[Rfam]
RNA: t44 RNA
Organism: Arenimonas maotaiensis
RNA sequence: AGCGUCAAUCGGCGAAUUCACACACCGGAUAUUCCCCCGCUUCGGGGUGCCCCUCGGGGUUCGAAGCGGCGAUCCGGUGGAGGCCCAAC
Numbered sequence: 001a002g003c004g005u006c007a008a009u010c011g012g013c014g015a016a017u018u019c020a021c022a023c024a025c026c027g028g029a030u031a032u033u034c035c036c037c038c039g040c041u042u043c044g045g046g047g048u049g050c051c052c053c054u055c056g057g058g059g060u061u062c063g064a065a066g067c068g069g070c071g072a073u074c075c076g077g078u079g080g081a082g083g084c085c086c087a088a089c
Stems, first nucleotide, its partner, number of pairs: 023079008037069008049060004